[Rfam]
A member of the RNA family "tRNA" from alpha proteobacterium HIMB59, 72 nucleotides long.
The base pairs follow the family's consensus structure, which is taken from published work.
The match comes from Rfam's covariance-model search (71 bits).
Rfam classes the family as a transfer RNA.
The source organism's lineage runs through Bacteria, Pseudomonadati, Alphaproteobacteria, Candidatus Pelagibacterales and Candidatus Pelagibacteraceae.
RNA sequence: GCCGCCGUAGCUCAGUGGUAGAGCACACCCUUGGUAAGGGUGGGGUCGGAAGUUCAAUUCUUCUCGGCGGCA
Numbered sequence: 001g002c003c004g005c006c007g008u009a010g011c012u013c014a015g016u017g018g019u020a021g022a023g024c025a026c027a028c029c030c031u032u033g034g035u036a037a038g039g040g041u042g043g044g045g046u047c048g049g050a051a052g053u054u055c056a057a058u059u060c061u062u063c064u065c066g067g068c069g070g071c072a
Base pairs, nucleotide, nucleotide: 001071002070003069004068005067006066007065010024011023012022013021026042027041028040029039030038048064049063050062051061052060